[Rfam]
RNA sequence: AUACUUACUUGGCAAGGGAGAUACCAUGAUCACGAACGUGGUUUUCUCAGGGUGAGGCUAUCCAUUGCACUCUGGUUAUGCUGACUCCUGUGAUUUUUCCAAACAUGCAUAAUUUGUGAUCAUGGGGCAUUGUGUUUGCACUCUCCCCUG
Numbered sequence: 001a002u003a004c005u006u007a008c009u010u011g012g013c014a015a016g017g018g019a020g021a022u023a024c025c026a027u028g029a030u031c032a033c034g035a036a037c038g039u040g041g042u043u044u045u046c047u048c049a050g051g052g053u054g055a056g057g058c059u060a061u062c063c064a065u066u067g068c069a070c071u072c073u074g075g076u077u078a079u080g081c082u083g084a085c086u087c088c089u090g091u092g093a094u095u096u097u098u099c100c101a102a103a104c105a106u107g108c109a110u111a112a113u114u115u116g117u118g119a120u121c122a123u124g125g126g127g128c129a130u131u132g133u134g135u136u137u138g139c140a141c142u143c144u145c146c147c148c149u150g
Stems, first nucleotide, its partner, number of pairs: 012108003016048006023042005049089004054085001056082003059078002062075002091103001124148004129144001132141003

Rfam assigns this 150-nucleotide RNA sequence from Carlito syrichta to the family "U1 spliceosomal RNA". Pairs were carried over by alignment from the consensus structure, which is taken from published work. It scores 103 bits against the family's covariance model. The organism belongs to Carlito, within Eukaryota.